[Rfam]
RNA sequence: UUUUGCAUUCGUUGCAUGACUCGUAUAUCUUCGGGGAUAGGGCCCGAACGUUUCUACCCGGCAACCGUAAAUUACCGGACUACGAGCGAAGGAUGCCUGAUU
Numbered sequence: 001u002u003u004u005g006c007a008u009u010c011g012u013u014g015c016a017u018g019a020c021u022c023g024u025a026u027a028u029c030u031u032c033g034g035g036g037a038u039a040g041g042g043c044c045c046g047a048a049c050g051u052u053u054c055u056a057c058c059c060g061g062c063a064a065c066c067g068u069a070a071a072u073u074a075c076c077g078g079a080c081u082a083c084g085a086g087c088g089a090a091g092g093a094u095g096c097c098u099g100a101u102u
Base pairs, nucleotide, nucleotide: 020086021085022084023083024082025081030048031047032046033045034044035043058078059077060076061075063073064072
Dot-bracket structure: ...................((((((....((((((.......)))))).........((((.((.......)).))))..))))))................